[Rfam]
RNA sequence: AUCAAUCUUCGGGGCAGGGUGAAAUUCCCUACCGGCGGUGAUGAGCAAGCGCUCUAAGCCCGCGAGCCUUUUUAUGGGCAGGAUUCGGUGCGAUUCCGAAGCCGACAGUAUAGUCUGGAUGGGAGAAGAUGGAG
Numbered sequence: 001a002u003c004a005a006u007c008u009u010c011g012g013g014g015c016a017g018g019g020u021g022a023a024a025u026u027c028c029c030u031a032c033c034g035g036c037g038g039u040g041a042u043g044a045g046c047a048a049g050c051g052c053u054c055u056a057a058g059c060c061c062g063c064g065a066g067c068c069u070u071u072u073u074a075u076g077g078g079c080a081g082g083a084u085u086c087g088g089u090g091c092g093a094u095u096c097c098g099a100a101g102c103c104g105a106c107a108g109u110a111u112a113g114u115c116u117g118g119a120u121g122g123g124a125g126a127a128g129a130u131g132g133a134g
Stems, first nucleotide, its partner, number of pairs: 003132001005130006017029003031114002033104002035063004058102002084100005106117003

FMN riboswitch aptamer (RFN element): a 134-nucleotide RNA from Bacillus licheniformis. Gene Ontology term of the family: FMN binding.